Rfam assigns this 112-nucleotide sequence to the family "DUF3800-III RNA". It is one of the family's seed sequences.
RNA sequence: GAGCGGUAUCGUAAAACCUGGUGACCCUGGUCGCCAACAGGCGUCCUAGCUGCUUCUGAAAUGAAGCGGGAACCCAAAGUAGACUGAAAUCCGGGCUCAGGUGGAGCCGUUC
Numbered sequence: 001g002a003g004c005g006g007u008a009u010c011g012u013a014a015a016a017c018c019u020g021g022u023g024a025c026c027c028u029g030g031u032c033g034c035c036a037a038c039a040g041g042c043g044u045c046c047u048a049g050c051u052g053c054u055u056c057u058g059a060a061a062u063g064a065a066g067c068g069g070g071a072a073c074c075c076a077a078a079g080u081a082g083a084c085u086g087a088a089a090u091c092c093g094g095g096c097u098c099a100g101g102u103g104g105a106g107c108c109g110u111u112c
Base pairs, nucleotide, nucleotide: 001112002111003110004109005108006107009105010104017101018100019099020098021097025095026094027093032043033042034041035040050069051068052067053066054065055064056063

It is annotated as a small RNA.